[Rfam]
Rfam assigns this 56-nucleotide RNA sequence from Microbacterium keratanolyticum to the family "msiK RNA". Rfam classes the family as a cis-regulatory element.

RNA sequence: CGCCGCUUCCAUCACGAAGGAUCGCCCGGCACGUACCGCCGGUGAAGGAGAAAAUG
Number, nucleotide and partner (000 for none) at each position: 001c000002g000003c000004c000005g000006c000007u000008u049009c048010c047011a000012u045013c044014a043015c000016g000017a000018a000019g000020g000021a000022u000023c000024g000025c000026c042027c041028g040029g039030c038031a000032c000033g000034u000035a000036c000037c000038g030039c029040c028041g027042g026043u014044g013045a012046a000047g010048g009049a008050g000051a000052a000053a000054a000055u000056g000